[Rfam]
RNA sequence: AGCAUUCGAAGAGGCGCGACCAACAAAAGUAGCGGUUACGAGUCGGGAUCAGAUGAAGACCAAUCGUGAAAGGGGCGGUCGCCGAGGUGAUAAGCAUGAUCAACACUUAUUUAACCGGGUCGUGAUUUAAGAGAUUACGGACUGUCGUAGGCUACAGAGGUUUACGGUGCGCUAUCGAGGACA
Numbered sequence: 001a002g003c004a005u006u007c008g009a010a011g012a013g014g015c016g017c018g019a020c021c022a023a024c025a026a027a028a029g030u031a032g033c034g035g036u037u038a039c040g041a042g043u044c045g046g047g048a049u050c051a052g053a054u055g056a057a058g059a060c061c062a063a064u065c066g067u068g069a070a071a072g073g074g075g076c077g078g079u080c081g082c083c084g085a086g087g088u089g090a091u092a093a094g095c096a097u098g099a100u101c102a103a104c105a106c107u108u109a110u111u112u113a114a115c116c117g118g119g120u121c122g123u124g125a126u127u128u129a130a131g132a133g134a135u136u137a138c139g140g141a142c143u144g145u146c147g148u149a150g151g152c153u154a155c156a157g158a159g160g161u162u163u164a165c166g167g168u169g170c171g172c173u174a175u176c177g178a179g180g181a182c183a
Stems, first nucleotide, its partner, number of pairs: 006178004010173002016082006024074001032067006086116003089111006117143002120140008145167007
Dot-bracket structure: .....((((((....((((((..(.......((((((........................))))))......)..))))))...(((((((((...........))))))..)))((.((((((((.....)))))))).)).(((((((.........)))))))....)).)))).....